Description: A member of the RNA family "let-7 microRNA precursor family" from Cyprinus carpio, 86 nucleotides long. On this family, see Rougvie, Nat Rev Genet 2001: "Control of developmental timing in animals". Taxonomically the source falls in Cyprinus carpio (Eukaryota, Opisthokonta, Deuterostomia, Osteoglossocephalai). From the family's description: This family represents the microRNAs (miRNA) let-7 and mir-98. let-7 was identified from a study of developmental timing in C. elegans, and was later shown to be part of a much larger class of non-coding RNAs termed miRNAs. The family has 64 seed sequences and 8,694 matches in Rfam 15.1. A search with the family's covariance model found it, with a score of 70 bits. Clan: let-7 microRNA precursor clan. Gene Ontology terms of the family: RISC complex and miRNA-mediated post-transcriptional gene silencing. The family's consensus secondary structure was predicted with RNAalifold.
RNA sequence: ACAAGCUGAGGUAGUAGGUUGUAUAGUUUGUGGGAAGGAUCUCAUCCUCUUCAGGUGAUAACUAUACAGUCUAUUGCCUUCCUUGA
Dot-bracket structure: .((((..((((((((((((((((((((....((((.........)))).(......)...)))))))))))))))))))).)))).